[Rfam]
RNA sequence: GUGAAAUAAAUCACAAAACAAACAUACACCCCUUUGUUUGAACGUGAACAUUUCUCCCAUCCCCUUUGUGAAAAGGACCGUCACUAUUAUACAGAAUAGUGACGGUCCUUUU
Numbered sequence: 001g002u003g004a005a006a007u008a009a010a011u012c013a014c015a016a017a018a019c020a021a022a023c024a025u026a027c028a029c030c031c032c033u034u035u036g037u038u039u040g041a042a043c044g045u046g047a048a049c050a051u052u053u054c055u056c057c058c059a060u061c062c063c064c065u066u067u068g069u070g071a072a073a074a075g076g077a078c079c080g081u082c083a084c085u086a087u088u089a090u091a092c093a094g095a096a097u098a099g100u101g102a103c104g105g106u107c108c109u110u111u112u
Stems, first nucleotide, its partner, number of pairs: 003054005011047004019040006074109015
RNA Staph. aureus E (RoxS): a 112-nucleotide RNA sequence from Ureibacillus massiliensis. Rfam classes the family as a small RNA. NCBI's taxonomy places the organism under Bacteria, Bacillati, Bacillota, Caryophanaceae, Ureibacillus massiliensis. It was shown to be regulated by the presence of nitric oxide (NO). In Bacillus subtilis it controls expression of genes with functions related to oxidative stress and oxidation-reduction reactions and it was renamed RoxS (for related to oxidative stress). The match comes from Rfam's covariance-model search (87 bits).